Overview
The record is a 158-nucleotide RNA sequence from Novosphingopyxis sp. YJ-S2-01, which matches "6S / SsrS RNA" in Rfam.
Nucleotides: 158
Stems, first nucleotide, its partner, number of pairs: 002156010013143002017140002033126003036122004041117002057101003061097005071088006
Number, partner (000 for none) and nucleotide at each position: 001000g002156c003155g004154g005153g006152a007151c008150u009149g010148c011147c012000c013143g014142g015000c016000a017140c018139g019000a020000g021000c022000u023000c024000g025000a026000g027000c028000a029000a030000a031000u032000a033126u034125c035124c036122c037121u038120g039119a040000g041117g042116c043000g044000a045000u046000a047000c048000a049000a050000c051000a052000u053000c054000c055000u056000a057101g058100g059099g060000a061097g062096c063095c064094g065093u066000c067000c068000c069000u070000g071088g072087c073086g074085g075084g076083g077000u078000c079000c080000u081000g082000g083076c084075c085074c086073u087072g088071c089000a090000c091000a092000u093065a094064u095063g096062g097061c098000g099059c100058c101057c102000a103000c104000c105000u106000g107000a108000c109000g110000u111000u112000a113000c114000u115000g116042g117041c118000g119039u120038c121037a122036g123000a124035g125034g126033a127000u128000a129000u130000u131000u132000c133000a134000g135000c136000a137000a138000a139018c140017g141000a142014c143013c144000c145000a146000u147011g148010g149009u150008g151007g152006u153005u154004c155003c156002g157000c158000c
The base pairs follow the family's consensus structure, which is taken from published work.